[Rfam]
RNA sequence: UCGUCCUGCUCGUGAUCGUCUUCUCACCGCUCACCGGGCAGGCGGAAAGGGGGGAGCCCCGCGAGGUCGUGACUCGCGGGGCUCCCUC
Numbered sequence: 001u002c003g004u005c006c007u008g009c010u011c012g013u014g015a016u017c018g019u020c021u022u023c024u025c026a027c028c029g030c031u032c033a034c035c036g037g038g039c040a041g042g043c044g045g046a047a048a049g050g051g052g053g054g055a056g057c058c059c060c061g062c063g064a065g066g067u068c069g070u071g072a073c074u075c076g077c078g079g080g081g082c083u084c085c086c087u088c
Base pairs, nucleotide, nucleotide: 001045002044003043005042006041007040008039009038010037011036012034013033014032015031018028050088051087052086053085054084055083056082057081058080059079060078061077062076063075064074065073
The record is an 88-nucleotide RNA from Streptomyces ruber, which matches "sodF sRNA" in Rfam. It is annotated as a small RNA. Gene Ontology terms of the family: regulation of mRNA stability, negative regulation of translation and mRNA binding. The match comes from Rfam's covariance-model search (86 bits). The pairing is the family consensus, mapped onto this sequence.